[Rfam]
RNA: Vault RNA
RNA sequence: GUGUUAGCUUAGCAAAGUGGUUACAUCGUUAAUCCUGAACUUUUAAUUCAACAGAUUGAAAAAAAAAAUGCUUACCACAUGCGCAACCUAACCUUUUU
Numbered sequence: 001g002u003g004u005u006a007g008c009u010u011a012g013c014a015a016a017g018u019g020g021u022u023a024c025a026u027c028g029u030u031a032a033u034c035c036u037g038a039a040c041u042u043u044u045a046a047u048u049c050a051a052c053a054g055a056u057u058g059a060a061a062a063a064a065a066a067a068a069u070g071c072u073u074a075c076c077a078c079a080u081g082c083g084c085a086a087c088c089u090a091a092c093c094u095u096u097u098u
Base pairs, nucleotide, nucleotide: 003092004091005090006089007088012082013081014080017078018077019076020075025072027070028069029068